[Rfam]
RNA sequence: CAGCAUGUUUCCAAGGUUUAUGGCUGGUUGUGGGCCUGUGUCUCCACAUGCAGGAAGAAUAACCUGGAGAGACUGACACACAGGUCAGGUCAGCACCACACCUGUGGCCGCCACUCAGCUUUGCUUGUUUG
Dot-bracket structure: ...........(...(((((((......)))))))..)...........................(.((((...........(..((((...........))))......).......)))).).......